[Rfam]
RNA: bZIP non canonical Hac1/Xbp1 intron
Organism: Aspergillus nidulans
RNA sequence: UGAGUCCCCCGAUUUGACACAACAUCCUGCAGCGAUGUUGUGCGACCUGCAGUGUCAGUCGGCGGGCUCG
Numbered sequence: 001u002g003a004g005u006c007c008c009c010c011g012a013u014u015u016g017a018c019a020c021a022a023c024a025u026c027c028u029g030c031a032g033c034g035a036u037g038u039u040g041u042g043c044g045a046c047c048u049g050c051a052g053u054g055u056c057a058g059u060c061g062g063c064g065g066g067c068u069c070g
Stems, first nucleotide, its partner, number of pairs: 001070007010061005021039006044056003